[Rfam]
RNA sequence: GGGCGGGACCGGCGCGGCGGAAACCUUCGAACCCCGACAGGUCCGAGAGGAAGCAUCGGUAAGGAGGCCCUUCCGGGCGCCGCCGGCAAACCUGCCCGGU
Numbered sequence: 001g002g003g004c005g006g007g008a009c010c011g012g013c014g015c016g017g018c019g020g021a022a023a024c025c026u027u028c029g030a031a032c033c034c035c036g037a038c039a040g041g042u043c044c045g046a047g048a049g050g051a052a053g054c055a056u057c058g059g060u061a062a063g064g065a066g067g068c069c070c071u072u073c074c075g076g077g078c079g080c081c082g083c084c085g086g087c088a089a090a091c092c093u094g095c096c097c098g099g100u
Stems, first nucleotide, its partner, number of pairs: 004094004009086006015077001018075005024067005034059004042051003
Dot-bracket structure: ...((((.(((((((..(((((.(((((.....((((....(((....)))....))))...)))))...))))).)...))))))....))))......
Rfam assigns this 100-nucleotide RNA sequence from Longilinea arvoryzae to the family "Bacterial small signal recognition particle RNA". Its family is annotated with signal recognition particle, plasma membrane targeting and SRP-dependent cotranslational protein targeting to membrane, signal sequence recognition in the Gene Ontology. About the family: The signal recognition particle (SRP) is a universally conserved ribonucleoprotein involved in the co-translational targeting of proteins to membranes.